[Rfam]
RNA sequence: UUUGAGGCAACAUGCUUCUUUAUAUCCCCAUAGGGAUAACAGUGCUAUGGAAUGUAAGGAAGUGUGUGGUUUCGGG
Numbered sequence: 001u002u003u004g005a006g007g008c009a010a011c012a013u014g015c016u017u018c019u020u021u022a023u024a025u026c027c028c029c030a031u032a033g034g035g036a037u038a039a040c041a042g043u044g045c046u047a048u049g050g051a052a053u054g055u056a057a058g059g060a061a062g063u064g065u066g067u068g069g070u071u072u073c074g075g076g
Stems, first nucleotide, its partner, number of pairs: 007070002010067016028050005
RNA: mir-1 microRNA precursor family
Organism: Alligator mississippiensis